[Rfam]
RNA sequence: UGACCAUCCCGAGCGGCCGAGAGAUCUGGCUCCGUGACGCCGCAGCAACCAUGGCCCCCGCAGGGGCCACAGGUGCUACCGCCAGAACCGAUGGAGA
Numbered sequence: 001u002g003a004c005c006a007u008c009c010c011g012a013g014c015g016g017c018c019g020a021g022a023g024a025u026c027u028g029g030c031u032c033c034g035u036g037a038c039g040c041c042g043c044a045g046c047a048a049c050c051a052u053g054g055c056c057c058c059c060g061c062a063g064g065g066g067c068c069a070c071a072g073g074u075g076c077u078a079c080c081g082c083c084a085g086a087a088c089c090g091a092u093g094g095a096g097a
Stems, first nucleotide, its partner, number of pairs: 001097001004094005013043005021032003026085004044077004049073002052069004081089001
Dot-bracket structure: (..(((((....(((((...(((..[[[[)))......)))))((((.((.((((..........))))..))))))...(]]]]...))))))..)
A member of the RNA family "SAM riboswitch aptamer (S box leader)" from Sinomonas sp. R1AF57, 97 nucleotides long. The source organism's lineage runs through Bacteria, Actinomycetes, Micrococcales, Micrococcaceae and Sinomonas. The base pairs follow the family's consensus structure, which is taken from published work. It scores 53 bits against the family's covariance model.